[Rfam]
RNA: glycine-GGAnGA riboswitch aptamer
RNA sequence: UCGGAUGAAUGCCGCUCUAGACACUGUAUGUGACAACAUUGUUUUUGAAAUAUAUACAGGGCCAAAGAAGCAAAACGGAAGGUGCAUAUCUCACCUUUUGUGGAAACUGCCAGGCAAAAGGAAGGCGACAGGACGAAUCUUUGGAGAGAAUGCUUUGGGCUUCCGCCCAGGAGCAUCACCUACGAGGCCAUAACCAACUGGUAAAAGGACAGAGAG
Numbered sequence: 001u002c003g004g005a006u007g008a009a010u011g012c013c014g015c016u017c018u019a020g021a022c023a024c025u026g027u028a029u030g031u032g033a034c035a036a037c038a039u040u041g042u043u044u045u046u047g048a049a050a051u052a053u054a055u056a057c058a059g060g061g062c063c064a065a066a067g068a069a070g071c072a073a074a075a076c077g078g079a080a081g082g083u084g085c086a087u088a089u090c091u092c093a094c095c096u097u098u099u100g101u102g103g104a105a106a107c108u109g110c111c112a113g114g115c116a117a118a119a120g121g122a123a124g125g126c127g128a129c130a131g132g133a134c135g136a137a138u139c140u141u142u143g144g145a146g147a148g149a150a151u152g153c154u155u156u157g158g159g160c161u162u163c164c165g166c167c168c169a170g171g172a173g174c175a176u177c178a179c180c181u182a183c184g185a186g187g188c189c190a191u192a193a194c195c196a197a198c199u200g201g202u203a204a205a206a207g208g209a210c211a212g213a214g215a216g
Base pairs, nucleotide, nucleotide: 001136002135003134010130011129013127014126015125016124022060024059025058026057027056028055029054030053031052032051061115062114063113067111069108070107075101076100077099078098079097080096081095082094083093084092139214140213141212142211143210148177150176151175152174153173154172155171156170178202179201180200184198186195187194